[Rfam]
RNA sequence: GAGAUCCUGCUCGUGAUCGUCUUCUCAACCUUCACCGGGCAGGCGGAAGAAGGACGGCCCCCGCGUGGGCGACCCUCCCAGGCGCAGCUCUGGGGGAGUGACUCGCGGGGGCCGUCU
Numbered sequence: 001g002a003g004a005u006c007c008u009g010c011u012c013g014u015g016a017u018c019g020u021c022u023u024c025u026c027a028a029c030c031u032u033c034a035c036c037g038g039g040c041a042g043g044c045g046g047a048a049g050a051a052g053g054a055c056g057g058c059c060c061c062c063g064c065g066u067g068g069g070c071g072a073c074c075c076u077c078c079c080a081g082g083c084g085c086a087g088c089u090c091u092g093g094g095g096g097a098g099u100g101a102c103u104c105g106c107g108g109g110g111g112c113c114g115u116c117u
Stems, first nucleotide, its partner, number of pairs: 001044001006043007013035004019029002052117014067102001
A member of the RNA family "sodF sRNA" from Streptomyces sp. ISL-10, 117 nucleotides long.
Lineage of the source: Bacteria > Bacillati > Kitasatosporales > Streptomycetaceae > Streptomyces.
By type it is a small RNA.
The family has 6 seed sequences and 336 matches in Rfam 15.1.
The match comes from Rfam's covariance-model search (67 bits).